[Rfam]
RNA sequence: AUGCCUUAAACUAAUGAAUGAGGAAAAUAACAAGCUGGGGUGAUGCAUGGUUUCUCACUACUUAUAUGAGAAGAAUUUUUGAAUGAGUAAAUAUCACCCCUUGAAGGACCCACCUACUUGCCUUAGAUCUCUAGAUGCAGUGAUUUGUCCA
Numbered sequence: 001a002u003g004c005c006u007u008a009a010a011c012u013a014a015u016g017a018a019u020g021a022g023g024a025a026a027a028u029a030a031c032a033a034g035c036u037g038g039g040g041u042g043a044u045g046c047a048u049g050g051u052u053u054c055u056c057a058c059u060a061c062u063u064a065u066a067u068g069a070g071a072a073g074a075a076u077u078u079u080u081g082a083a084u085g086a087g088u089a090a091a092u093a094u095c096a097c098c099c100c101u102u103g104a105a106g107g108a109c110c111c112a113c114c115u116a117c118u119u120g121c122c123u124u125a126g127a128u129c130u131c132u133a134g135a136u137g138c139a140g141u142g143a144u145u146u147g148u149c150c151a
Stems, first nucleotide, its partner, number of pairs: 004023005032053006039046001054070004084151002087148002091146001093144005101134001103132001105130003109126001112123001
Dot-bracket structure: ...(((((..........)))))........((((((.(......).))))))((((.........)))).............((.((..(.(((((...(.(.(((.(..(..........)..).))).).).....))))).))).))
This 151-nucleotide RNA sequence from Leptobrachium leishanense belongs to the Rfam family "U12 minor spliceosomal RNA". The organism belongs to Leptobrachium, within Eukaryota. The pairing is the family consensus, mapped onto this sequence. The literature on the family includes a 1997 paper in Trends Biochem Sci by Tarn and Steitz, "Pre-mRNA splicing: the discovery of a new spliceosome doubles the challenge". The family is grouped with related families in Rfam's "U2 clan". It is annotated as a spliceosomal small nuclear RNA.